[Rfam]
RNA sequence: UUAGCUCUCUUUGCCUUUUGGCUUAGAUCAAGUGUAGUAUCUGUUCUUUUCAGUUUAAUCUCUGAAACUGCUCUACGGAGUAGAAUCGUGAUUAUUCUAAUUUUUGCAACUCGGUCGGCAUCCCUCUGGGCUUGCCUAUGGUUGCCGACCACUGUGUCCCUGGUAUUACACUGCCUCCAGGCGACGCGAACUCAA
Dot-bracket structure: .......(((..(((....)))..)))....................((((((........))))))((((((....)))))).............................((((((((......((((....))))....))))))))..(((((((((((.............))))).)))))).......